[Rfam]
Nucleotides: 116
Base pairs, nucleotide, nucleotide: 003077004076005075006074008067009066010065011064012063013062014061015060016059017058018057027053028052029051030050031049032048033047034046098116100114101113102112103111
Number, partner (000 for none) and nucleotide at each position: 001000a002000g003077c004076c005075a006074u007000g008067u009066a010065g011064u012063g013062a014061g015060c016059a017058c018057a019000a020000a021000g022000c023000g024000a025000a026000c027053u028052a029051u030050u031049c032048u033047u034046u035000c036000g037000c038000c039000u040000u041000u042000u043000a044000c045000u046034a047033a048032a049031g050030a051029a052028u053027a054000c055000u056000g057018u058017g059016u060015g061014c062013u063012c064011g065010c066009u067008a068000c069000u070000u071000a072000u073000a074006a075005u076004g077003g078000c079000a080000u081000a082000c083000g084000a085000u086000a087000a088000u089000u090000u091000u092000u093000a094000g095000a096000g097000g098116g099000a100114g101113a102112u103111u104000c105000c106000a107000g108000u109000g110000g111103a112102a113101u114100u115000a116098u
The record is a 116-nucleotide sequence from Apium graveolens, which matches "U5 spliceosomal RNA" in Rfam.
Lineage of the source: Eukaryota > Euphyllophyta > Pentapetalae > asterids > Apium.
It scores 86 bits against the family's covariance model.
Rfam's curators write: U5 RNA is a component of both types of known spliceosome. The precise function of this molecule is unknown, though it is known that the 5' loop is required for splice site selection and p220 binding, and that both the 3' stem-loop and the Sm site are important for Sm protein binding and cap methylation.